[Rfam]
Rfam assigns this 88-nucleotide RNA from Psilopogon haemacephalus to the family "Small nucleolar SNORD12/SNORD106". The match comes from Rfam's covariance-model search (86 bits). The base pairs follow the family's consensus structure, which was predicted with RNAalifold. The organism belongs to Psilopogon, within Eukaryota.

RNA sequence: GCUGGUGUAGGUGAUGACAUUUUUUUCCCCGUCAGAUCGACAGUGUUGAUUUGUUGCUUUCAAGCCAGUUCAUGUCUGAUACACCAGC
Numbered sequence: 001g002c003u004g005g006u007g008u009a010g011g012u013g014a015u016g017a018c019a020u021u022u023u024u025u026u027c028c029c030c031g032u033c034a035g036a037u038c039g040a041c042a043g044u045g046u047u048g049a050u051u052u053g054u055u056g057c058u059u060u061c062a063a064g065c066c067a068g069u070u071c072a073u074g075u076c077u078g079a080u081a082c083a084c085c086a087g088c
Base pairs, nucleotide, nucleotide: 001088002087003086004085005084006083007082008081009080